[Rfam]
Nucleotides: 386
Base pairs, nucleotide, nucleotide: 001382002381003380004379005378006377007376008375009374010373011371012335013334014333015332016331017330018329020037021036022035023034024033025032026031042369043368044367046366047365048364049363050362051215052214053213054212059267060266061265062264064211065210066209067208068207069083070082071081072080073079084098085096086095087094088093099206100205104204105203106200107199108198121146122145123142124141125140126139127138128137129136130135154172155171156170157169158168159167173195174193175192176191177190178189179188180187181186219292220291221290229283230282231281232280233279234278258275259274260273261272262271299318300317301316302315303314304313305312306311
Number, partner (000 for none) and nucleotide at each position: 001382u002381c003380a004379g005378a006377c007376g008375g009374c010373u011371g012335g013334g014333c015332g016331g017330c018329c019000g020037c021036g022035a023034g024033g025032g026031c027000u028000u029000u030000g031026g032025c033024u034023c035022u036021c037020g038000a039000g040000g041000a042369a043368a044367g045000u046366c047365c048364g049363g050362g051215c052214u053213c054212c055000a056000u057000g058000a059267c060266g061265g062264c063000a064211g065210g066209g067208u068207g069083c070082c071081g072080g073079g074000u075000a076000a077000c078000g079073c080072c081071c082070g083069g084098c085096c086095g087094g088093c089000g090000c091000g092000a093088g094087c095086c096085g097000a098084g099206g100205g101000a102000a103000a104204g105203c106200g107199c108198c109000a110000c111000a112000g113000a114000g115000a116000g117000u118000a119000g120000a121146c122145c123142g124141c125140c126139g127138c128137g129136g130135g131000c132000c133000c134000g135130c136129c137128c138127g139126c140125g141124g142123u143000a144000a145122g146121g147000c148000u149000g150000a151000a152000a153000a154172g155171g156170u157169g158168g159167g160000g161000u162000a163000a164000g165000a166000g167159c168158c169157c170156a171155c172154c173195g174193c175192c176191g177190c178189c179188c180187c181186g182000g183000c184000a185000a186181c187180g188179g189178g190177g191176c192175g193174g194000g195173c196000a197000u198108g199107g200106c201000a202000a203105g204104c205100c206099c207068c208067g209066c210065c211064c212054g213053g214052a215051g216000c217000a218000a219292g220291a221290c222000c223000g224000a225000g226000u227000a228000g229283g230282g231281a232280c233279g234278g235000c236000a237000u238000c239000g240000c241000a242000g243000c244000c245000c246000g247000c248000a249000a250000g251000g252000g253000u254000u255000g256000c257000a258275g259274g260273g261272c262271c263000c264062g265061c266060c267059g268000u269000c270000a271262g272261g273260c274259c275258c276000c277000g278234c279233c280232g281231u282230c283229c284000g285000g286000g287000u288000g289000u290221g291220u292219c293000g294000c295000u296000g297000g298000a299318c300317c301316c302315g303314u304313c305312c306311c307000g308000c309000a310000a311306g312305g313304g314303g315302c316301g317300g318299g319000c320000g321000a322000g323000a324000g325000g326000a327000a328000u329018g330017g331016u332015c333014g334013c335012u336000c337000a338000g339000g340000g341000g342000u343000c344000g345000a346000a347000a348000g349000g350000c351000c352000c353000c354000g355000g356000a357000c358000a359000g360000a361000a362050c363049c364048c365047g366046g367044c368043u369042u370000a371011c372000a373010g374009g375008c376007c377006g378005u379004c380003u381002g382001a383000c384000g385000c386000c
The record is a 386-nucleotide RNA from Parvularcula dongshanensis, which matches "Bacterial RNase P class A" in Rfam. Rfam classes the family as a ribozyme. Pairs were carried over by alignment from the consensus structure, which is taken from published work.